[Rfam]
This 299-nucleotide sequence from Trichonephila inaurata belongs to the Rfam family "Metazoan signal recognition particle RNA". A search with the family's covariance model found it, with a score of 228 bits. Rfam describes the family as follows. The signal recognition particle (SRP) is a universally conserved ribonucleoprotein. It is involved in the co-translational targeting of proteins to membranes. The family's RNA type in Rfam is non-coding RNA gene.
RNA sequence: ACCGGCACCGGUGGCGUGGUCUUGUAAUCCAGCUGCUUUGGAUGUUUAGGCUGUUGGACGGUGUGAGGUUGGGAGUUCUGUCCUCCGCUGCUCUAUGUCGAUCAGGCGUCCGCGCUAAGCACGGUUUCGAUAUGGUGCAUCUGAGGGACCUCGGGAUCACCAGGUCGUCUAAGGAGGAGCGAACCGGCCCAGGUCGGAAACGGAGCAGGCAAAAGCUCCCGCGGCGUGCAGUAGUGGGAUAGCGCCUGUGAAUGGACCGUGGUUGGCAGCCUAUCCAAAAUAGUUGGACACAGUCUUUU
Number, nucleotide and partner (000 for none) at each position: 001a045002c044003c000004g023005g022006c000007a020008c019009c018010g017011g000012u000013g000014g000015c000016g000017u010018g009019g008020u007021c000022u005023u004024g000025u000026a000027a000028u042029c041030c040031a000032g000033c000034u000035g000036c000037u000038u000039u000040g030041g029042a028043u000044g002045u001046u000047u000048a296049g295050g294051c293052u292053g291054u290055u000056g000057g000058a000059c286060g285061g284062u283063g000064u000065g000066a000067g276068g275069u000070u273071g272072g271073g270074a000075g000076u000077u000078c269079u268080g267081u266082c265083c000084u000085c262086c261087g260088c259089u000090g257091c000092u256093c255094u254095a253096u252097g000098u250099c000100g000101a000102u000103c248104a247105g246106g245107c244108g243109u242110c238111c237112g000113c236114g235115c234116u233117a232118a000119g229120c228121a227122c226123g225124g000125u223126u000127u221128c167129g166130a165131u164132a000133u162134g161135g160136u159137g158138c000139a000140u155141c154142u153143g152144a151145g150146g000147g000148a000149c000150c145151u144152c143153g142154g141155g140156a000157u000158c137159a136160c135161c134162a133163g000164g131165u130166c129167g128168u174169c173170u000171a000172a000173g169174g168175a000176g219177g218178a217179g216180c215181g000182a000183a000184c000185c000186g000187g210188c209189c208190c000191a000192g000193g000194u203195c202196g201197g000198a000199a000200a000201c196202g195203g194204a000205g000206c000207a000208g189209g188210c187211a000212a000213a000214a000215g180216c179217u178218c177219c176220c000221g127222c000223g125224g000225c123226g122227u121228g120229c119230a000231g000232u117233a116234g115235u114236g113237g111238g110239a000240u000241a000242g109243c108244g107245c106246c105247u104248g103249u000250g098251a000252a096253u095254g094255g093256a092257c090258c000259g088260u087261g086262g085263u000264u000265g082266g081267c080268a079269g078270c073271c072272u071273a070274u000275c068276c067277a000278a000279a000280a000281u000282a000283g062284u061285u060286g059287g000288a000289c000290a054291c053292a052293g051294u050295c049296u048297u000298u000299u000